[Rfam]
RNA sequence: UUGUGCUAGGCGGGGAGCCAGCGGUGCCCUGUACCCGAAAUCCGCUUUAUGCGGGGCUGAACCCCCUCCCUCGGAUCACGCCGAAAACAUGUUCGACCGUUGGGCCGGACGCCGCGCAACAGACGGUUGCGAACCUCGUCAGGUCCGGAAGGAAGCAGCGAUAAGCGAUGCGGUCUGUGUCGCGGAUCGAUUCCGGUGCAUAGGCGGCAGAACAUGCGGAGGCCGUUUCAAAGGAGGGUGCACAA
Numbered sequence: 001u002u003g004u005g006c007u008a009g010g011c012g013g014g015g016a017g018c019c020a021g022c023g024g025u026g027c028c029c030u031g032u033a034c035c036c037g038a039a040a041u042c043c044g045c046u047u048u049a050u051g052c053g054g055g056g057c058u059g060a061a062c063c064c065c066c067u068c069c070c071u072c073g074g075a076u077c078a079c080g081c082c083g084a085a086a087a088c089a090u091g092u093u094c095g096a097c098c099g100u101u102g103g104g105c106c107g108g109a110c111g112c113c114g115c116g117c118a119a120c121a122g123a124c125g126g127u128u129g130c131g132a133a134c135c136u137c138g139u140c141a142g143g144u145c146c147g148g149a150a151g152g153a154a155g156c157a158g159c160g161a162u163a164a165g166c167g168a169u170g171c172g173g174u175c176u177g178u179g180u181c182g183c184g185g186a187u188c189g190a191u192u193c194c195g196g197u198g199c200a201u202a203g204g205c206g207g208c209a210g211a212a213c214a215u216g217c218g219g220a221g222g223c224c225g226u227u228u229c230a231a232a233g234g235a236g237g238g239u240g241c242a243c244a245a
Base pairs, nucleotide, nucleotide: 001245002244003243004242005241006240009058010057011056012030013029014028015027017025018024019023034055035054036053037052039050064238065237066236067235068234069233073229074228075227077225080223081222082221083217089215090214091213092212093211094210098207101200102199104197105196106195107194108193109192112185113184114183115182116181117179118178120177121176122175123174124173126169127168128167129166130165136161137160138159139158144153145152146151
A member of the RNA family "Bacterial large signal recognition particle RNA" from Desulfatitalea alkaliphila, 245 nucleotides long. A reference for the family is Rosenblad et al. (2003), "SRPDB: Signal Recognition Particle Database", Nucleic Acids Res. The family's consensus secondary structure is taken from published work. Rfam classes the family as a non-coding RNA gene. Clan: SRP clan. A search with the family's covariance model found it, with a score of 138 bits.